[Rfam]
RNA sequence: CAACCUCUGGCGAUAAUCGUGAAUGUUG
Numbered sequence: 001c002a003a004c005c006u007c008u009g010g011c012g013a014u015a016a017u018c019g020u021g022a023a024u025g026u027u028g
Stems, first nucleotide, its partner, number of pairs: 001028004008023001010020004

This 28-nucleotide sequence belongs to the Rfam family "L19-Flavobacteria ribosomal protein leader". On this family, see Eckert and Weinberg, BMC Microbiol 2020: "Discovery of 20 novel ribosomal leader candidates in bacteria and archaea". It is annotated as a cis-regulatory leader.